[Rfam]
RNA sequence: GGUGGUUCUCGGUGACGCAACCCGGAAUCGGGCUCCCUUCUCUCUGGUUCCGGGUGCAUCACCCAAGAACCGCA
Number, nucleotide and partner (000 for none) at each position: 001g000002g073003u072004g000005g070006u069007u068008c067009u066010c000011g063012g062013u061014g060015a059016c000017g000018c056019a055020a000021c053022c052023c000024g051025g050026a049027a048028u047029c046030g045031g044032g043033c000034u000035c000036c000037c000038u000039u000040c000041u000042c000043u032044c031045u030046g029047g028048u027049u026050c025051c024052g022053g021054g000055u019056g018057c000058a000059u015060c014061a013062c012063c011064c000065a000066a009067g008068a007069a006070c005071c000072g003073c002074a000
mir-9223 microRNA precursor family: a 74-nucleotide RNA sequence from Myotis brandtii. The family's consensus secondary structure was predicted with RNAalifold. A search with the family's covariance model found it, with a score of 70 bits. The source organism's lineage runs through Eukaryota, Chordata, Dipnotetrapodomorpha, Eutheria and Myotis.